[Rfam]
RNA sequence: AGCUGGAGCGGAGGCAAGAUGUUGGCAUAGCUGAUGAGUUAAGAACCUGCUAUGCCAACAUAUUGCCCUCUUUCCUG
Numbered sequence: 001a002g003c004u005g006g007a008g009c010g011g012a013g014g015c016a017a018g019a020u021g022u023u024g025g026c027a028u029a030g031c032u033g034a035u036g037a038g039u040u041a042a043g044a045a046c047c048u049g050c051u052a053u054g055c056c057a058a059c060a061u062a063u064u065g066c067c068c069u070c071u072u073u074c075c076u077g
Base pairs, nucleotide, nucleotide: 005075006074007073008072010070011069013067014066015065016064017063019061020060021059023057024056025055026054027053028052029051030050031049